[Rfam]
RNA sequence: ACUAAUAACGACAAUAAGGGCGGGUGACUCCCCGCCCUCUCGAUUGCGGGAGGCCAGGACAGACAGACGCGACGCGGUCGUUCCCCGCGGCACGGACAUCAAGGUCUUCAUCAAUCUUCAGGGUAGCGAUGCUACCCUUUUUUACCGGAGUUUU
Numbered sequence: 001a002c003u004a005a006u007a008a009c010g011a012c013a014a015u016a017a018g019g020g021c022g023g024g025u026g027a028c029u030c031c032c033c034g035c036c037c038u039c040u041c042g043a044u045u046g047c048g049g050g051a052g053g054c055c056a057g058g059a060c061a062g063a064c065a066g067a068c069g070c071g072a073c074g075c076g077g078u079c080g081u082u083c084c085c086c087g088c089g090g091c092a093c094g095g096a097c098a099u100c101a102a103g104g105u106c107u108u109c110a111u112c113a114a115u116c117u118u119c120a121g122g123g124u125a126g127c128g129a130u131g132c133u134a135c136c137c138u139u140u141u142u143u144a145c146c147g148g149a150g151u152u153u154u
Stems, first nucleotide, its partner, number of pairs: 013152002019036004023031002038122003042119001043115004048109002060094001069091002073089005
sroC RNA: a 154-nucleotide RNA from Acerihabitans arboris. On this family, see Vogel et al., Nucleic Acids Res 2003: "RNomics in Escherichia coli detects new sRNA species and indicates parallel transcriptional output in bacteria". This family consists of a number of bacterial sroC RNA genes of around 160 bases in length. sroC is found in several Enterobacterial species. It base-pairs with GcvB. This interaction triggers the degradation of GcvB by RNase E, alleviating the GcvB-mediated mRNA repression of other amino acid-related transport and metabolic genes. It is annotated as a small RNA. A search with the family's covariance model found it, with a score of 68 bits. The family's consensus secondary structure was predicted with PFOLD. Gene Ontology terms of the family: regulation of RNA stability and RNA binding.